[Rfam]
RNA sequence: CCGGCUCCGGUUCACGCCCACUGCCCUGAGGCAGGGCGACCCGGCGGCU
Numbered sequence: 001c002c003g004g005c006u007c008c009g010g011u012u013c014a015c016g017c018c019c020a021c022u023g024c025c026c027u028g029a030g031g032c033a034g035g036g037c038g039a040c041c042c043g044g045c046g047g048c049u
Stems, first nucleotide, its partner, number of pairs: 003049003007044004015038005022033004
Dot-bracket structure: ..(((.((((....(((((..((((....)))))))))..))))..)))

About this RNA
Rfam assigns this 49-nucleotide RNA to the family "L31-Actinobacteria ribosomal protein leader". By type it is a cis-regulatory leader.